[Rfam]
RNA sequence: GUGGCGGUGCAGUCCCAUCUCGCGUCGGUGUCCACGAGGGCGCCCUCACCGAAGUGACCGCCGUCGGCGAGCACGGCGUCCGUCAUCUCGUCCCCGUACUUGCCGGCGGACGUCCGGCUGAUCCGGCCGUGGGCGAUCAGGUGGACCUGCUCGGCGGGGGUGCCGGCACGGACCAGUACCUCGCCCGCCCGGAAGUCGCGUUGGACGCACCGGUCGGCGAUCGCCGUCAGCACCUCGACGUCCUCGAAGCCGCGCAGCAGGGCCAGUUCACCGAGCUGACGGGGAAUCACACGGACGUCGGCGCCGUCCUGGACGAACUCGACGCGUCCGUCGCCGACGUUGUGGCUCAGCCGGCGGUUCACCCGGUAGGUGCCGCCCUUGGUCUCCACCCAGGGGAGCAUCCGCAGCAGCCACCGCGAGGUGAUCUCCUGCAUCUGCGGGGCGGACUUGGUCGUGUGGGUGAGGUUACGGGCGGCCGCCGUGCCCAGACUGGACUGCCGGCGCGG
Numbered sequence: 001g002u003g004g005c006g007g008u009g010c011a012g013u014c015c016c017a018u019c020u021c022g023c024g025u026c027g028g029u030g031u032c033c034a035c036g037a038g039g040g041c042g043c044c045c046u047c048a049c050c051g052a053a054g055u056g057a058c059c060g061c062c063g064u065c066g067g068c069g070a071g072c073a074c075g076g077c078g079u080c081c082g083u084c085a086u087c088u089c090g091u092c093c094c095c096g097u098a099c100u101u102g103c104c105g106g107c108g109g110a111c112g113u114c115c116g117g118c119u120g121a122u123c124c125g126g127c128c129g130u131g132g133g134c135g136a137u138c139a140g141g142u143g144g145a146c147c148u149g150c151u152c153g154g155c156g157g158g159g160g161u162g163c164c165g166g167c168a169c170g171g172a173c174c175a176g177u178a179c180c181u182c183g184c185c186c187g188c189c190c191g192g193a194a195g196u197c198g199c200g201u202u203g204g205a206c207g208c209a210c211c212g213g214u215c216g217g218c219g220a221u222c223g224c225c226g227u228c229a230g231c232a233c234c235u236c237g238a239c240g241u242c243c244u245c246g247a248a249g250c251c252g253c254g255c256a257g258c259a260g261g262g263c264c265a266g267u268u269c270a271c272c273g274a275g276c277u278g279a280c281g282g283g284g285a286a287u288c289a290c291a292c293g294g295a296c297g298u299c300g301g302c303g304c305c306g307u308c309c310u311g312g313a314c315g316a317a318c319u320c321g322a323c324g325c326g327u328c329c330g331u332c333g334c335c336g337a338c339g340u341u342g343u344g345g346c347u348c349a350g351c352c353g354g355c356g357g358u359u360c361a362c363c364c365g366g367u368a369g370g371u372g373c374c375g376c377c378c379u380u381g382g383u384c385u386c387c388a389c390c391c392a393g394g395g396g397a398g399c400a401u402c403c404g405c406a407g408c409a410g411c412c413a414c415c416g417c418g419a420g421g422u423g424a425u426c427u428c429c430u431g432c433a434u435c436u437g438c439g440g441g442g443c444g445g446a447c448u449u450g451g452u453c454g455u456g457u458g459g460g461u462g463a464g465g466u467u468a469c470g471g472g473c474g475g476c477c478g479c480c481g482u483g484c485c486c487a488g489a490c491u492g493g494a495c496u497g498c499c500g501g502c503g504c505g506g
Base pairs, nucleotide, nucleotide: 006390007389008388009387011385012384014382015381025322026321027320028319031316032315035312037310038309039308040307041306042305047303049301050300051299052298054233055232060227061226063224064223065105066104067103068102075097077096078095117222119220122217123216127212129210130209132206134204135202136201140197143196150191153189154188155187156186157185158184161178162177165174166173235295236294240290241289244286250282251281252280256277257276258275260271262269329342330341332339353377354376355375356374357373360372361371362370363369391431392430393429394428395427396426397425399423400422401421403418404417405416407415437476438475440473443470444469446467447465448464449463451461452460477505478504480503481502482501486497487496488495
RNA: Saccharopolyspora sRNA 350